The family of this 54-nucleotide sequence from Cyanobacteria bacterium FACHB-502 is "Nitrogen stress-induced RNA 1". The literature on the family includes a 2010 paper in J Mol Biol by Ionescu et al., "Heterocyst-specific transcription of NsiR1, a non-coding RNA encoded in a tandem array of direct repeats in cyanobacteria". By type it is a small RNA.
RNA sequence: UGGUAGAUGCACCCUGAUUAUCGCCUCCCGGUUUCGUACUGGGGGGUUUUAUUU
Numbered sequence: 001u002g003g004u005a006g007a008u009g010c011a012c013c014c015u016g017a018u019u020a021u022c023g024c025c026u027c028c029c030g031g032u033u034u035c036g037u038a039c040u041g042g043g044g045g046g047u048u049u050u051a052u053u054u
Stems, first nucleotide, its partner, number of pairs: 002013003024046009
Pairs were carried over by alignment from the consensus structure. It scores 48 bits against the family's covariance model.